The family of this 66-nucleotide RNA sequence from Marchantia polymorpha is "Small nucleolar RNA snoR60". On this family, see Barneche et al., J Biol Chem 2000: "Fibrillarin genes encode both a conserved nucleolar protein and a novel small nucleolar RNA involved in ribosomal RNA methylation in Arabidopsis thaliana". Pairs were carried over by alignment from the consensus structure, which was predicted with PFOLD. NCBI's taxonomy places the organism under Eukaryota, Viridiplantae, Streptophytina, Marchantiidae, Marchantia polymorpha. Rfam links the family to the GO terms nucleolus and RNA processing.
RNA sequence: AAGCGUAUGAAGAAUUUAUGGAUUCCCCUUCACUUAAUUAUAAGUGAUAAAUCCGACUCUGACGCU
Numbered sequence: 001a002a003g004c005g006u007a008u009g010a011a012g013a014a015u016u017u018a019u020g021g022a023u024u025c026c027c028c029u030u031c032a033c034u035u036a037a038u039u040a041u042a043a044g045u046g047a048u049a050a051a052u053c054c055g056a057c058u059c060u061g062a063c064g065c066u
Base pairs, nucleotide, nucleotide: 002066003065004064005063
Dot-bracket structure: .((((.........................................................))))